[Rfam]
The record is a 31-nucleotide RNA sequence, which matches "L31-Firmicutes ribosomal protein leader" in Rfam. Clan: Ribosomal Protein L31 Leader clan. The literature on the family includes a 2020 paper in BMC Microbiol by Eckert and Weinberg, "Discovery of 20 novel ribosomal leader candidates in bacteria and archaea". Pairs were carried over by alignment from the consensus structure, which is taken from published work.
RNA sequence: CUAUGGCAAAAUUUUGUCAUGGCGGAAGGAG
Dot-bracket structure: ((((((((......)))))))).........